A member of the RNA family "Plastid-psbM 3UTR RNA" from Gossypium armourianum, 61 nucleotides long.
RNA sequence: AACUCGAUAGUAUGGUAGAAAAAAAUAUGAAUCUUUCUACCAUACUAUCUAUAUCUAUUAU
Numbered sequence: 001a002a003c004u005c006g007a008u009a010g011u012a013u014g015g016u017a018g019a020a021a022a023a024a025a026u027a028u029g030a031a032u033c034u035u036u037c038u039a040c041c042a043u044a045c046u047a048u049c050u051a052u053a054u055c056u057a058u059u060a061u
Stems, first nucleotide, its partner, number of pairs: 006049016023032001
Dot-bracket structure: .....((((((((((((((((.(........).))))))))))))))))............
Rfam describes the family as follows. Plastid psbM is a non-coding RNA (ncRNA) recognised in plastids. Rfam classes the family as a cis-regulatory element. The match comes from Rfam's covariance-model search (55 bits). Pairs were carried over by alignment from the consensus structure, which was predicted with LocARNA.